Small Cajal body specific RNA 3: a 136-nucleotide RNA from Salvator merianae. scaRNAs are a specific class of small nuclear RNAs which localise to the Cajal bodies and guide the modification of RNA polymerase II transcribed spliceosomal RNAs U1, U2, U4, U5 and U12. NCBI's taxonomy places the organism under Eukaryota, Eumetazoa, Gnathostomata, Squamata, Salvator. For this family Rfam cites "Cajal body-specific small nuclear RNAs: a novel class of 2'-O-methylation and pseudouridylation guide RNAs" (Darzacq et al., EMBO J, 2002). The base pairs follow the family's consensus structure, which was predicted with RNAalifold.
RNA sequence: CCUGGAAGCUGAAAGAUGUCUAAUGCAGGCAGAUGAGAUGUCUUUUGUCUGUACUUCAAGGCUUCCUAGAGUAAAAUGAAGGUCUCUGUCUGGUUUAGAGCAGCCAACUGAACUGGAUCGUUCCCCUUUGCACAUA
Numbered sequence: 001c002c003u004g005g006a007a008g009c010u011g012a013a014a015g016a017u018g019u020c021u022a023a024u025g026c027a028g029g030c031a032g033a034u035g036a037g038a039u040g041u042c043u044u045u046u047g048u049c050u051g052u053a054c055u056u057c058a059a060g061g062c063u064u065c066c067u068a069g070a071g072u073a074a075a076a077u078g079a080a081g082g083u084c085u086c087u088g089u090c091u092g093g094u095u096u097a098g099a100g101c102a103g104c105c106a107a108c109u110g111a112a113c114u115g116g117a118u119c120g121u122u123c124c125c126c127u128u129u130g131c132a133c134a135u136a
Stems, first nucleotide, its partner, number of pairs: 004066003009060002024053007035044003078129005086120001088118003092114007